[Rfam]
RNA sequence: AUUUAAAUCGUGCAACAUAUAUAUUAGAACCAGGUCAGGACUGGAAAGUAGCAGCCUUAAUAAUCCCUAUAUGUGUGCACUUUUUUAUUGGAG
Numbered sequence: 001a002u003u004u005a006a007a008u009c010g011u012g013c014a015a016c017a018u019a020u021a022u023a024u025u026a027g028a029a030c031c032a033g034g035u036c037a038g039g040a041c042u043g044g045a046a047a048g049u050a051g052c053a054g055c056c057u058u059a060a061u062a063a064u065c066c067c068u069a070u071a072u073g074u075g076u077g078c079a080c081u082u083u084u085u086u087a088u089u090g091g092a093g
Stems, first nucleotide, its partner, number of pairs: 002092005007083001010080003013075001015074006023064004032057004040049003

Rfam assigns this 93-nucleotide sequence from Mycoplasma sp. CAG:611 to the family "Bacterial small signal recognition particle RNA". Taxonomically the source falls in Mycoplasma (Bacteria, Bacillati, Mollicutes, Mycoplasmatales). The family's RNA type in Rfam is non-coding RNA gene. Rfam's curators write: The signal recognition particle (SRP) is a universally conserved ribonucleoprotein involved in the co-translational targeting of proteins to membranes. The family's consensus secondary structure is taken from published work.